[Rfam]
Nucleotides: 071
Base pairs, nucleotide, nucleotide: 002070003069004068009025010024
Number, partner (000 for none) and nucleotide at each position: 001000u002070u003069g004068a005000a006000a007000u008000a009025a010024u011000g012000g013000c014000a015000a016000u017000g018000u019000g020000u021000u022000u023000a024010a025009u026000c027000a028000a029000u030000a031000a032000c033000a034000g035000u036000u037000c038000a039000c040000c041000u042000a043000g044000c045000a046000a047000a048000u049000g050000u051000u052000g053000a054000u055000a056000a057000u058000u059000u060000g061000g062000g063000u064000a065000u066000g067000a068004u069003u070002a071000u